[Rfam]
RNA sequence: GAUGAAACAUGUCCUCGGCAGUUAACUGCAGCCGGAUUUCAAAUUCCUCGGCAGUUAACUGCCGAAGGGCAU
Numbered sequence: 001g002a003u004g005a006a007a008c009a010u011g012u013c014c015u016c017g018g019c020a021g022u023u024a025a026c027u028g029c030a031g032c033c034g035g036a037u038u039u040c041a042a043a044u045u046c047c048u049c050g051g052c053a054g055u056u057a058a059c060u061g062c063c064g065a066a067g068g069g070c071a072u
Base pairs, nucleotide, nucleotide: 012068013067015065016064017063018062019061020060021059022058023057024056025055026054027053028052029051
About this RNA: A member of the RNA family "MIR2629 microRNA precursor family" from Medicago truncatula, 72 nucleotides long. Lineage of the source: Eukaryota > Streptophyta > Spermatophyta > Trifolieae > Medicago.